[Rfam]
RNA sequence: GCGUGGGUCGGCCCGCUGCACCGAGGAAUCAGUGGGCUGGGGGACACCGCCGUCUCAUUCCCCGCGGGCGGCGGUCCGGGCCGGGAGGUGCGUCGCGCGCCUCCCGGCCCCGCA
Numbered sequence: 001g002c003g004u005g006g007g008u009c010g011g012c013c014c015g016c017u018g019c020a021c022c023g024a025g026g027a028a029u030c031a032g033u034g035g036g037c038u039g040g041g042g043g044a045c046a047c048c049g050c051c052g053u054c055u056c057a058u059u060c061c062c063c064g065c066g067g068g069c070g071g072c073g074g075u076c077c078g079g080g081c082c083g084g085g086a087g088g089u090g091c092g093u094c095g096c097g098c099g100c101c102u103c104c105c106g107g108c109c110c111c112g113c114a
Stems, first nucleotide, its partner, number of pairs: 001113002006077002009039010040045001047074009078110013
Record summary:
Shown here is a 114-nucleotide RNA from Streptomyces qinglanensis, a member of the family "Streptomyces RNA 4115". The source organism's lineage runs through Bacteria, Actinomycetes, Kitasatosporales, Streptomycetaceae and Streptomyces. It is annotated as a small RNA. It scores 78 bits against the family's covariance model. A reference for the family is Vockenhuber et al. (2011), "Deep sequencing-based identification of small non-coding RNAs in Streptomyces coelicolor", RNA Biol. About the family: Identified by deep sequencing of transcriptome at the end of exponential growth phase. Sequencing size consistent with notrthern blot size. Streptomyces specific.